RNA sequence: AGUAGAGUAGGUAUUACGCGUUAAGUGUCAUGGGAUGGGAAGUUGUCCAUGAACGAAGGCAGCCGCAAGGCUCCACGAUGUAAUAUUGCGUCCGCUACU
Numbered sequence: 001a002g003u004a005g006a007g008u009a010g011g012u013a014u015u016a017c018g019c020g021u022u023a024a025g026u027g028u029c030a031u032g033g034g035a036u037g038g039g040a041a042g043u044u045g046u047c048c049a050u051g052a053a054c055g056a057a058g059g060c061a062g063c064c065g066c067a068a069g070g071c072u073c074c075a076c077g078a079u080g081u082a083a084u085a086u087u088g089c090g091u092c093c094g095c096u097a098c099u
Stems, first nucleotide, its partner, number of pairs: 001099005010087009019077003025054002028052007038093003042089001058074002
Dot-bracket structure: (((((....((((((((((((...((.(((((((...[[[.[...)))))))))...((.............))))).))))))))).].]]].)))))
RNA: THF (Tetrahydrofolate) riboswitch aptamer